[Rfam]
RNA sequence: ACCAUCUUUGUCAUGGGGUGAGUGGCUUGCUCAAUGAACGUGUAGUGAGAGUGGCCCCGCUGACACCAUUUCAACACUCCAGCAUCACCUGAACAGCCCUGCUCAGGUUAUGGUGCAAUUUUUGGAAAC
Numbered sequence: 001a002c003c004a005u006c007u008u009u010g011u012c013a014u015g016g017g018g019u020g021a022g023u024g025g026c027u028u029g030c031u032c033a034a035u036g037a038a039c040g041u042g043u044a045g046u047g048a049g050a051g052u053g054g055c056c057c058c059g060c061u062g063a064c065a066c067c068a069u070u071u072c073a074a075c076a077c078u079c080c081a082g083c084a085u086c087a088c089c090u091g092a093a094c095a096g097c098c099c100u101g102c103u104c105a106g107g108u109u110a111u112g113g114u115g116c117a118a119u120u121u122u123u124g125g126a127a128a129c
Base pairs, nucleotide, nucleotide: 006018007017008016009015020060022058025055026054027053029052030051031050032049038046039045082116083115084114085113086112087111088107089106090105091104092103